[Rfam]
RNA sequence: AUACUUACCUGGAUGGGGUCAAUGGAUGAUCAGAAAGUUCCAUGGCCUGGGGUAGUGACUUCCAUUGCACUUGGGAGGGGUGCUUCCCUAAGGUCUCCCCAAGUUGGGAGAGCCUACGUUAUAAUUUGUGGUAGUUGGGGCCUGCGUACGCGCGGCCUCUUC
Dot-bracket structure: ...........((((((((((.((((............))))))))))(((...(((.(((((..........)).))).)))..)))..((((((.((......)).))).))).))))................((((..((((....))))..))))..
Numbered sequence: 001a002u003a004c005u006u007a008c009c010u011g012g013a014u015g016g017g018g019u020c021a022a023u024g025g026a027u028g029a030u031c032a033g034a035a036a037g038u039u040c041c042a043u044g045g046c047c048u049g050g051g052g053u054a055g056u057g058a059c060u061u062c063c064a065u066u067g068c069a070c071u072u073g074g075g076a077g078g079g080g081u082g083c084u085u086c087c088c089u090a091a092g093g094u095c096u097c098c099c100c101a102a103g104u105u106g107g108g109a110g111a112g113c114c115u116a117c118g119u120u121a122u123a124a125u126u127u128g129u130g131g132u133a134g135u136u137g138g139g140g141c142c143u144g145c146g147u148a149c150g151c152g153c154g155g156c157c158u159c160u161u162c
Stems, first nucleotide, its partner, number of pairs: 012120004016048006023042004049088003055083003059079003062075002091115003094111003098107002137160004143154004
Background:
U1 spliceosomal RNA: a 162-nucleotide RNA from Gossypium hirsutum. Pairs were carried over by alignment from the consensus structure, which is taken from published work. Gene Ontology terms of the family: pre-mRNA 5'-splice site binding, mRNA 5'-splice site recognition and U1 snRNP. Rfam classes the family as a spliceosomal small nuclear RNA. The organism belongs to Gossypium, within Eukaryota.